[Rfam]
RNA sequence: AAGAGGAGGUGCCAUGUGCCAUGUGGGCACAUAUCGGAAUGCACCGACGAACUGCCGCCGACCGAAAGGGAGGGGGCGAUACAAGGA
Numbered sequence: 001a002a003g004a005g006g007a008g009g010u011g012c013c014a015u016g017u018g019c020c021a022u023g024u025g026g027g028c029a030c031a032u033a034u035c036g037g038a039a040u041g042c043a044c045c046g047a048c049g050a051a052c053u054g055c056c057g058c059c060g061a062c063c064g065a066a067a068g069g070g071a072g073g074g075g076g077c078g079a080u081a082c083a084a085g086g087a
Stems, first nucleotide, its partner, number of pairs: 008045005015031006054077003058073002062069002
RNA: GA-cis RNA